Source information:
A member of the RNA family "S-element" from Phytoamicus setariae, 67 nucleotides long. This family represents a group of S-elements from p42d and related plasmids. The S-element has multiple functions and is believed to act as a negative regulator of repC transcription, be required for efficient replication and act as a translational enhancer of repC. Lineage of the source: Bacteria > Pseudomonadati > Hyphomicrobiales > Rhizobiaceae > Phytoamicus. The family's RNA type in Rfam is cis-regulatory element. The family's consensus secondary structure is taken from published work. Rfam 15.1 lists 231 matches to the family in 124 species.

RNA sequence: UGUCAAGAGUCUUUGGCGUCGUUUUGGCGGGCGGAUUUCUUUUGCCUUUUGAAAGGUGAAGAAGAUG
Numbered sequence: 001u002g003u004c005a006a007g008a009g010u011c012u013u014u015g016g017c018g019u020c021g022u023u024u025u026g027g028c029g030g031g032c033g034g035a036u037u038u039c040u041u042u043u044g045c046c047u048u049u050u051g052a053a054a055g056g057u058g059a060a061g062a063a064g065a066u067g
Stems, first nucleotide, its partner, number of pairs: 010063001012061003017058004022054006029047001031045005